[Rfam]
The family of this 443-nucleotide sequence is "Vertebrate telomerase RNA".
A reference for the family is Chen et al. (2000), "Secondary structure of vertebrate telomerase RNA", Cell.
The base pairs follow the family's consensus structure, which is taken from published work.
The family is grouped with related families in Rfam's "Telomerase clan".
It is one of the family's seed sequences.
From the family's description: Telomerase is a ribonucleoprotein reverse transcriptase that synthesises telomeric DNA. Telomerase RNAs differ greatly in sequence and structure between vertebrates, ciliates and yeasts, but they share a 5' pseudoknot structure close to the template sequence. Vertebrate telomerase RNAs have a 3' H/ACA snoRNA-like domain.
By type it is a non-coding RNA gene.
RNA sequence: GGGUUGCGGAGGGUGGGCCCAGGAGCGGUGGCGGCCAUUUUUUAAGUCUAACCCUAACUGAAAGAGGCGUAGGCGCUGCGCUUUUGCUUCACGCGCGCUGUUUUUCUCGCUGACUUUCAGCGGGCGGAAAAGCCUCGGCCUACCGCCAUCCACCAUCCAGUCUGAAACAAACAAAAAAUGUCAGCCUCUGGCUCGCUCACUGCUCCCGGGAACCUGCGGUGGUUCGCCCGCCCAGCCCCCGCGCCCCGCCUGAGGCCGCGGUCGGCCCGGGGCUUCUCCGGAGGCGCCCAUUGCCGCCGCGAAGAGUUGGGCUCUGUCAGCCGCGGGUCCCUCGGGGGCCAAGGCGAGGCUCUGACCGCAGGGAAAGGAACGGAGUUGGUCCCCGCGCGCUGUGCGCUUCCCUAAGCUGUGGGCUGUGCACCUGGGACUCGGCUCAGACACUU
Numbered sequence: 001g002g003g004u005u006g007c008g009g010a011g012g013g014u015g016g017g018c019c020c021a022g023g024a025g026c027g028g029u030g031g032c033g034g035c036c037a038u039u040u041u042u043u044a045a046g047u048c049u050a051a052c053c054c055u056a057a058c059u060g061a062a063a064g065a066g067g068c069g070u071a072g073g074c075g076c077u078g079c080g081c082u083u084u085u086g087c088u089u090c091a092c093g094c095g096c097g098c099u100g101u102u103u104u105u106c107u108c109g110c111u112g113a114c115u116u117u118c119a120g121c122g123g124g125c126g127g128a129a130a131a132g133c134c135u136c137g138g139c140c141u142a143c144c145g146c147c148a149u150c151c152a153c154c155a156u157c158c159a160g161u162c163u164g165a166a167a168c169a170a171a172c173a174a175a176a177a178a179u180g181u182c183a184g185c186c187u188c189u190g191g192c193u194c195g196c197u198c199a200c201u202g203c204u205c206c207c208g209g210g211a212a213c214c215u216g217c218g219g220u221g222g223u224u225c226g227c228c229c230g231c232c233c234a235g236c237c238c239c240c241g242c243g244c245c246c247c248g249c250c251u252g253a254g255g256c257c258g259c260g261g262u263c264g265g266c267c268c269g270g271g272g273c274u275u276c277u278c279c280g281g282a283g284g285c286g287c288c289c290a291u292u293g294c295c296g297c298c299g300c301g302a303a304g305a306g307u308u309g310g311g312c313u314c315u316g317u318c319a320g321c322c323g324c325g326g327g328u329c330c331c332u333c334g335g336g337g338g339c340c341a342a343g344g345c346g347a348g349g350c351u352c353u354g355a356c357c358g359c360a361g362g363g364a365a366a367g368g369a370a371c372g373g374a375g376u377u378g379g380u381c382c383c384c385g386c387g388c389g390c391u392g393u394g395c396g397c398u399u400c401c402c403u404a405a406g407c408u409g410u411g412g413g414c415u416g417u418g419c420a421c422c423u424g425g426g427a428c429u430c431g432g433c434u435c436a437g438a439c440a441c442u443u
Stems, first nucleotide, its partner, number of pairs: 018210003022206010033193005080133005092126003096122005109185006115178003213362007226350003229346002232344002235339007245327005257301005263296004269289003303315004373435005378429006392421005400413003